[Rfam]
RNA: permuted transfer-messenger RNA
Organism: Sphingomonas sp. Leaf33
RNA sequence: GGCGAUAAAGGAUUGCGUGCAAUAGAUGCAGCGGACCCGGGGGCAGUACCCGGCGGCUCCACCACAAGUGGUGGUGUACUUGGACACCGUUUCUGACGGGGCCGAACCAGGAUCGACGUGUAUUGAAAAGCGUAUGUCUUUCGCUCGGAAUGGGACCACCGCAACGGCCCAUUACACAAGUGCCAACGAUAACGAAGCACUCGCAAUUGCAGCGUAA
Numbered sequence: 001g002g003c004g005a006u007a008a009a010g011g012a013u014u015g016c017g018u019g020c021a022a023u024a025g026a027u028g029c030a031g032c033g034g035a036c037c038c039g040g041g042g043g044c045a046g047u048a049c050c051c052g053g054c055g056g057c058u059c060c061a062c063c064a065c066a067a068g069u070g071g072u073g074g075u076g077u078a079c080u081u082g083g084a085c086a087c088c089g090u091u092u093c094u095g096a097c098g099g100g101g102c103c104g105a106a107c108c109a110g111g112a113u114c115g116a117c118g119u120g121u122a123u124u125g126a127a128a129a130g131c132g133u134a135u136g137u138c139u140u141u142c143g144c145u146c147g148g149a150a151u152g153g154g155a156c157c158a159c160c161g162c163a164a165c166g167g168c169c170c171a172u173u174a175c176a177c178a179a180g181u182g183c184c185a186a187c188g189a190u191a192a193c194g195a196a197g198c199a200c201u202c203g204c205a206a207u208u209g210c211a212g213c214g215u216a217a
Base pairs, nucleotide, nucleotide: 001145002144003143004142005141015133016132017131018130027122028121029120031119032118033117037053038052039051040050041049054104055103056102057101058100059099060098146161147160148159